About this RNA
Shown here is a 75-nucleotide RNA sequence from Hydrocoleum sp. CS-953, a member of the family "tRNA". The base pairs follow the family's consensus structure, which is taken from published work.
[Rfam]
RNA sequence: AACGGUGUAGCUCAGUUAGUUUAGAGUGCCUGUCUAUCGAACAGGAGGUCGCGGGCGCAAAUCCCGUCACCCUCG
Numbered sequence: 001a002a003c004g005g006u007g008u009a010g011c012u013c014a015g016u017u018a019g020u021u022u023a024g025a026g027u028g029c030c031u032g033u034c035u036a037u038c039g040a041a042c043a044g045g046a047g048g049u050c051g052c053g054g055g056c057g058c059a060a061a062u063c064c065c066g067u068c069a070c071c072c073u074c075g
Base pairs, nucleotide, nucleotide: 002073004071005070006069007068010027011026012025013024029045030044031043032042033041051067052066053065054064055063

Description
The family's RNA type in Rfam is transfer RNA.